[Rfam]
RNA sequence: CCCAGGGUUCACACCCUGGGCUACCAGAUUUUGCCCCGUUGGGGCU
Numbered sequence: 001c002c003c004a005g006g007g008u009u010c011a012c013a014c015c016c017u018g019g020g021c022u023a024c025c026a027g028a029u030u031u032u033g034c035c036c037c038g039u040u041g042g043g044g045c046u
Stems, first nucleotide, its partner, number of pairs: 001020008033045005

Shown here is a 46-nucleotide sequence from Candidatus Vecturithrix granuli, a member of the family "Acido-Lenti-1 RNA". It scores 45 bits against the family's covariance model. The base pairs follow the family's consensus structure, which is taken from published work. It is annotated as a small RNA.